This 164-nucleotide part of an RNA from Kalanchoe fedtschenkoi belongs to the Rfam family "Eukaryotic small subunit ribosomal RNA". A reference for the family is Yusupov et al. (2001), "Crystal structure of the ribosome at 5.5 A resolution", Science. It scores 1492 bits against the family's covariance model. The family's consensus secondary structure is taken from published work.
[Rfam]
RNA sequence: CCGCCCGUCGCUCUACCAAUUGAAUGGCCCGGUGAAGUGUGCGGAUCGCGGCGAUGUGUGCGGUUCGCCGCCGGUGACGUCGCGAGAAGUCCACUGAACCUUAUCAUUUAGAGGAAGGAGAAGUCGUAACAAGGUAAGUUGGUGAACCUGCGGAAGGAUCAUUG
Numbered sequence: 001c002c003g004c005c006c007g008u009c010g011c012u013c014u015a016c017c018a019a020u021u022g023a024a025u026g027g028c029c030c031g032g033u034g035a036a037g038u039g040u041g042c043g044g045a046u047c048g049c050g051g052c053g054a055u056g057u058g059u060g061c062g063g064u065u066c067g068c069c070g071c072c073g074g075u076g077a078c079g080u081c082g083c084g085a086g087a088a089g090u091c092c093a094c095u096g097a098a099c100c101u102u103a104u105c106a107u108u109u110a111g112a113g114g115a116a117g118g119a120g121a122a123g124u125c126g127u128a129a130c131a132a133g134g135u136a137a138g139u140u141g142g143u144g145a146a147c148c149u150g151c152g153g154a155a156g157g158a159u160c161a162u163u164g
Stems, first nucleotide, its partner, number of pairs: 001133001003130001006126002009123001011120002013117002016114002020110001022109006031100003036095004041090002046085008055076002061073004135156001138151002141148002